[Rfam]
RNA: Streptomyces-metH RNA
Organism: Streptomyces abyssalis
RNA sequence: ACCCCCGCUCCGCGGAAUGCCCGGCUGCACUCUUGUGUUCGCCCGAUACCCUGAUCAGGUGCGCCGUCCUCAGUGCAGUGACCGGACAGCGCAUAGCCGACAGCCGUCGCACUUUAGGGAGAACCCUUCAUG
Numbered sequence: 001a002c003c004c005c006c007g008c009u010c011c012g013c014g015g016a017a018u019g020c021c022c023g024g025c026u027g028c029a030c031u032c033u034u035g036u037g038u039u040c041g042c043c044c045g046a047u048a049c050c051c052u053g054a055u056c057a058g059g060u061g062c063g064c065c066g067u068c069c070u071c072a073g074u075g076c077a078g079u080g081a082c083c084g085g086a087c088a089g090c091g092c093a094u095a096g097c098c099g100a101c102a103g104c105c106g107u108c109g110c111a112c113u114u115u116a117g118g119g120a121g122a123a124c125c126c127u128u129c130a131u132g
Stems, first nucleotide, its partner, number of pairs: 060093004066087004096110002099108003